[Rfam]
RNA sequence: GGCUUGUCCAACUGCAGUGGUGUUUACAACUAAUUGAUCAGUUAGAGAUUUCCUUGUUCCUUCUUCACUCCUAUUCCUUCACUUGACUAGCCUUAA
Numbered sequence: 001g002g003c004u005u006g007u008c009c010a011a012c013u014g015c016a017g018u019g020g021u022g023u024u025u026a027c028a029a030c031u032a033a034u035u036g037a038u039c040a041g042u043u044a045g046a047g048a049u050u051u052c053c054u055u056g057u058u059c060c061u062u063c064u065u066c067a068c069u070c071c072u073a074u075u076c077c078u079u080c081a082c083u084u085g086a087c088u089a090g091c092c093u094u095a096a
Stems, first nucleotide, its partner, number of pairs: 001092004006087003010084002014080001016075005022070001028058003032054001
Y RNA: a 96-nucleotide sequence from Aotus nancymaae. Rfam classes the family as a non-coding RNA gene. Rfam describes the family as follows. Y RNAs are components of the Ro ribonucleoprotein particle (Ro RNP), in association with Ro60 and La proteins.